[Rfam]
RNA sequence: GCAGGGCUGGCAGGGAGGCUGGGAGGGGCUGGCUGGGUCUGGUAGUGGGCAUCAGCUGGCCCUCAUUUCUUAAGACAGCACUUCUGU
Numbered sequence: 001g002c003a004g005g006g007c008u009g010g011c012a013g014g015g016a017g018g019c020u021g022g023g024a025g026g027g028g029c030u031g032g033c034u035g036g037g038u039c040u041g042g043u044a045g046u047g048g049g050c051a052u053c054a055g056c057u058g059g060c061c062c063u064c065a066u067u068u069c070u071u072a073a074g075a076c077a078g079c080a081c082u083u084c085u086g087u
Base pairs, nucleotide, nucleotide: 001087002086003085004084005083006079007078008077009076015071016070017069018068023064024063025062026061027060029059030058031057032056033055034054035053036052037050038049039048040047041046